[Rfam]
Notes:
SAM riboswitch aptamer (S box leader): a 97-nucleotide RNA sequence from Cellulomonas gilvus. The match comes from Rfam's covariance-model search (52 bits). Taxonomically the source falls in Cellulomonas gilvus (Bacteria, Actinomycetota, Cellulomonadaceae, Cellulomonas). Gene Ontology term of the family: regulation of gene expression. The base pairs follow the family's consensus structure, which is taken from published work.
RNA sequence: CUACCAUCCAGAGCGGCCGAGAGACCUGGCUCGUUGACGCCGCAGCAACCCCCCUCCGCGACGAGGGUGUGGGUGCUUCCGCCAGGGUCGAUGGAGA
Numbered sequence: 001c002u003a004c005c006a007u008c009c010a011g012a013g014c015g016g017c018c019g020a021g022a023g024a025c026c027u028g029g030c031u032c033g034u035u036g037a038c039g040c041c042g043c044a045g046c047a048a049c050c051c052c053c054c055u056c057c058g059c060g061a062c063g064a065g066g067g068u069g070u071g072g073g074u075g076c077u078u079c080c081g082c083c084a085g086g087g088u089c090g091a092u093g094g095a096g097a
Base pairs, nucleotide, nucleotide: 002096004094005093006092007091008090013043014042015041016040017039021032022031023030026085027084028083029082044077045076046075047074049073050072051069053067054066081089